[Rfam]
RNA sequence: AUUGCGCAGAAUUUGUGAGCUUCACAAUUUCUAACGAGUGUAGUCUUGGGAGGAUCUUGAUUUUACGCGCUUUUUAGCUGCGGACCUUACGGUUUAUAAAAUCACGCUCGUUGAAAAUGGCAGGACUUUUGUCCUGCCAUUUUUA
Number, nucleotide and partner (000 for none) at each position: 001a000002u000003u145004g144005c000006g142007c000008a000009g000010a000011a029012u000013u027014u026015g025016u024017g000018a000019g000020c000021u000022u000023c000024a016025c015026a014027a013028u000029u011030u000031c000032u000033a000034a000035c110036g109037a108038g107039u000040g000041u000042a000043g055044u054045c053046u052047u000048g000049g000050g000051a000052g046053g045054a044055u043056c000057u000058u000059g103060a102061u101062u100063u099064u000065a000066c082067g081068c080069g078070c077071u076072u000073u000074u000075u000076a071077g070078c069079u000080g068081c067082g066083g000084a093085c092086c091087u000088u000089a000090c000091g086092g085093u084094u000095u000096a000097u000098a000099a063100a062101a061102u060103c059104a000105c000106g000107c038108u037109c036110g035111u000112u000113g000114a000115a000116a000117a000118u000119g138120g137121c136122a135123g134124g133125a132126c131127u000128u000129u000130u000131g126132u125133c124134c123135u122136g121137c120138c119139a000140u000141u000142u006143u000144u004145a003

Shown here is a 145-nucleotide RNA from Ahrensia marina, a member of the family "Alphaproteobacterial sRNA ar9". For this family Rfam cites "A survey of sRNA families in alpha-proteobacteria" (del Val et al., RNA Biol, 2012). Rfam classes the family as a small RNA.